This 345-nucleotide RNA sequence from Sphingomonas cavernae belongs to the Rfam family "Alphaproteobacteria transfer-messenger RNA".
Gene Ontology term of the family: RNA catabolic process.
RNA sequence: CCACUUUUCAUUCACGACGGAGCCCCUAUAUUGGCCGGUGCCGGAUUCGUCCGGCUAUGGCGAUAAAUUGUGUCGUGCAAUAGAUGCAGCGGACCCGGGGGCGGUACCCGGCGGCUCCACCAUAAACCCUUGGCGACAGGGGCUUUUGACGGGGCCGAACUAGGAUCGACGUGUAUUGAAAGACGAUGUUUUUGCCCGGCCUGAAUGAGCCGUUAAACCGUUCAAAACCACAAGUGCCAACGAUAACGAAGCACUCGCUCUCGCAGCGUAAUUGAGGGGCUAACGCCCUGAGAUUAUUCUAAAAGAACGCGGUUCGGGCCGAACCGGGCAACAGAAUCGGACUCC
Numbered sequence: 001c002c003a004c005u006u007u008u009c010a011u012u013c014a015c016g017a018c019g020g021a022g023c024c025c026c027u028a029u030a031u032u033g034g035c036c037g038g039u040g041c042c043g044g045a046u047u048c049g050u051c052c053g054g055c056u057a058u059g060g061c062g063a064u065a066a067a068u069u070g071u072g073u074c075g076u077g078c079a080a081u082a083g084a085u086g087c088a089g090c091g092g093a094c095c096c097g098g099g100g101g102c103g104g105u106a107c108c109c110g111g112c113g114g115c116u117c118c119a120c121c122a123u124a125a126a127c128c129c130u131u132g133g134c135g136a137c138a139g140g141g142g143c144u145u146u147u148g149a150c151g152g153g154g155c156c157g158a159a160c161u162a163g164g165a166u167c168g169a170c171g172u173g174u175a176u177u178g179a180a181a182g183a184c185g186a187u188g189u190u191u192u193u194g195c196c197c198g199g200c201c202u203g204a205a206u207g208a209g210c211c212g213u214u215a216a217a218c219c220g221u222u223c224a225a226a227a228c229c230a231c232a233a234g235u236g237c238c239a240a241c242g243a244u245a246a247c248g249a250a251g252c253a254c255u256c257g258c259u260c261u262c263g264c265a266g267c268g269u270a271a272u273u274g275a276g277g278g279g280c281u282a283a284c285g286c287c288c289u290g291a292g293a294u295u296a297u298u299c300u301a302a303a304a305g306a307a308c309g310c311g312g313u314u315c316g317g318g319c320c321g322a323a324c325c326g327g328g329c330a331a332c333a334g335a336a337u338c339g340g341a342c343u344c345c
Stems, first nucleotide, its partner, number of pairs: 040055005059196005070189007085175003089172003095111005112157007197212004202224003310326004316345003
Bacterial tmRNA, also known as 10Sa RNA or SsrA, is named for its dual tRNA and mRNA-like properties. Its role is to liberate the mRNA from a stalled ribosome. To accomplish this part of the tmRNA is used as a reading frame that ends in a translation stop signal. The broken mRNA is replaced in the ribosome by the tmRNA and translation of the tmRNA leads to addition of a proteolysis tag to the incomplete protein enabling recognition by a protease.
Its Rfam clan is "tRNA clan".